[Rfam]
Rfam assigns this 181-nucleotide RNA sequence from Haliscomenobacter hydrossis to the family "SAM riboswitch aptamer (S box leader)". The SAM riboswitch is found upstream of a number of genes which code for proteins involved in methionine or cysteine biosynthesis in Gram-positive bacteria.
RNA sequence: AUUUUAUAGAGAAGAGGGGAGAGAACGGGCUCUAAGAACCUCUGGCAACCAUGCUUUUUUAAGCGAAAAGUGAAAAGCGAAAAGUGAAAAGUAAGAUUAGCUGCUUUUCGCUUUUCACUUUUCACUUUUCACUAAAUAAAAGUAACGGUGCCAAAUCCCGCCAUUAAUGGGCAUAUAAAAU
Number, nucleotide and partner (000 for none) at each position: 001a181002u180003u179004u178005u177006a176007u175008a174009g000010a000011g000012a000013a043014g042015a041016g040017g039018g000019g000020a000021g032022a031023g030024a000025a000026c160027g159028g158029g157030c023031u022032c021033u000034a000035a000036g000037a000038a000039c017040c016041u015042c014043u013044g152045g151046c150047a149048a000049c148050c147051a000052u144053g143054c142055u141056u140057u139058u138059u000060u000061a000062a000063g000064c000065g000066a000067a000068a000069a000070g000071u000072g000073a000074a000075a000076a000077g000078c000079g000080a000081a000082a000083a000084g000085u000086g000087a000088a000089a000090a000091g000092u000093a000094a000095g000096a000097u000098u000099a000100g000101c000102u000103g000104c000105u000106u000107u000108u000109c000110g000111c000112u000113u000114u000115u000116c000117a000118c000119u000120u000121u000122u000123c000124a000125c000126u000127u000128u000129u000130c000131a000132c000133u000134a000135a000136a000137u000138a058139a057140a056141a055142g054143u053144a052145a000146c000147g050148g049149u047150g046151c045152c044153a000154a000155a000156u173157c029158c028159c027160g026161c170162c169163a168164u000165u000166a000167a000168u163169g162170g161171g000172c000173a156174u008175a007176u006177a005178a004179a003180a002181u001